The record is a 65-nucleotide RNA sequence from Sporomusa malonica, which matches "Fluoride riboswitch aptamer (crcB RNA motif)" in Rfam.
[Rfam]
Nucleotides: 065
Base pairs, nucleotide, nucleotide: 010025011024012023013022016056017055018054019053020052021051033046034045035044036043
Number, partner (000 for none) and nucleotide at each position: 001000c002000a003000a004000u005000c006000u007000a008000u009000a010025g011024g012023c013022g014000a015000u016056g017055g018054a019053g020052u021051u022013c023012g024011c025010c026000a027000u028000u029000a030000a031000a032000u033046c034045c035044g036043u037000u038000a039000u040000u041000a042000u043036g044035c045034g046033g047000u048000g049000a050000u051021g052020a053019c054018u055017c056016c057000u058000a059000c060000u061000a062000g063000u064000a065000a